[Rfam]
Source information:
Shown here is a 133-nucleotide sequence from Crocuta crocuta, a member of the family "Small nucleolar RNA SNORA70". snoRNA U70 seems to be exclusive to mammals and is a member of the H/ACA class of snoRNA which contain H (ANANNA) and ACA box motifs. H/ACA box snoRNAs are involved in the conversion of uridines to pseudouridines (5-ribosyluracil) a constituent of structural RNAs (transfer, ribosomal, small nuclear, and small nucleolar). It scores 137 bits against the family's covariance model. On this family, see Charette and Gray, IUBMB Life 2000: "Pseudouridine in RNA: what, where, how, and why". Rfam 15.1 lists 5,173 matches to the family in 383 species. The family's consensus secondary structure was predicted with PFOLD.
RNA sequence: CUGCAGCCAACUAAGCCGACUGUGCCUUUUCCCCAUGGGGCCCAGUGUGCAAUGGCUGUGCACAACAGCCUCCUUGGUAGUGUAUGCAGCCUGUUGAUUGCAUGGGUUGCCCUAAGGAACCUUGGAGACAGCU
Numbered sequence: 001c002u003g004c005a006g007c008c009a010a011c012u013a014a015g016c017c018g019a020c021u022g023u024g025c026c027u028u029u030u031c032c033c034c035a036u037g038g039g040g041c042c043c044a045g046u047g048u049g050c051a052a053u054g055g056c057u058g059u060g061c062a063c064a065a066c067a068g069c070c071u072c073c074u075u076g077g078u079a080g081u082g083u084a085u086g087c088a089g090c091c092u093g094u095u096g097a098u099u100g101c102a103u104g105g106g107u108u109g110c111c112c113u114a115a116g117g118a119a120c121c122u123u124g125g126a127g128a129c130a131g132c133u
Stems, first nucleotide, its partner, number of pairs: 002051004019046004025040001027038001076121003087109006
Dot-bracket structure: .((((.............((((..(.(..........).)..)))).))))........................(((........((((((...........)))))).........)))............